RNA sequence: UACUACUAAAGCUAAACCUUCUGCAAAGUAGGGACAGAAAGUUACGGAUCCUAGUUGGAAAGCCGAACUGCUACC
Numbered sequence: 001u002a003c004u005a006c007u008a009a010a011g012c013u014a015a016a017c018c019u020u021c022u023g024c025a026a027a028g029u030a031g032g033g034a035c036a037g038a039a040a041g042u043u044a045c046g047g048a049u050c051c052u053a054g055u056u057g058g059a060a061a062g063c064c065g066a067a068c069u070g071c072u073a074c075c
Stems, first nucleotide, its partner, number of pairs: 012037002017032003021028002040069004045065003049059002
Dot-bracket structure: ...........((...(((.((....)).)))...))..((((.(((.((.......))...)))))))......
The family of this 75-nucleotide RNA sequence from Methyloprofundus sp. is "c-di-GMP-I riboswitch aptamer". It scores 50 bits against the family's covariance model. Pairs were carried over by alignment from the consensus structure, which is taken from published work.